This 138-nucleotide sequence from Aquabacterium olei belongs to the Rfam family "ZMP/ZTP riboswitch aptamer (pfl RNA motif)". Pairs were carried over by alignment from the consensus structure, which is taken from published work. Taxonomically the source falls in Aquabacterium (Bacteria, Pseudomonadota, Burkholderiales, Sphaerotilaceae). The match comes from Rfam's covariance-model search (54 bits).
[Rfam]
RNA sequence: AACCCGCUGCGCAACUGGCGAUACACGGCGGGUUUUUCGUUUCCAACAACGACCCGCCUGAGGUGGUGAACCACCGGGAAGCGCGGCCGGCUGGCUCGUAAGGGCCACGCCGAUGUGCCGUUCGCCUGGGCAGCCCUC
Numbered sequence: 001a002a003c004c005c006g007c008u009g010c011g012c013a014a015c016u017g018g019c020g021a022u023a024c025a026c027g028g029c030g031g032g033u034u035u036u037u038c039g040u041u042u043c044c045a046a047c048a049a050c051g052a053c054c055c056g057c058c059u060g061a062g063g064u065g066g067u068g069a070a071c072c073a074c075c076g077g078g079a080a081g082c083g084c085g086g087c088c089g090g091c092u093g094g095c096u097c098g099u100a101a102g103g104g105c106c107a108c109g110c111c112g113a114u115g116u117g118c119c120g121u122u123c124g125c126c127u128g129g130g131c132a133g134c135c136c137u138c
Base pairs, nucleotide, nucleotide: 003090004089006087007086008085009084010083011082012081015078016077017126018125019124020123021122063074064073065072066071116132117131118130119129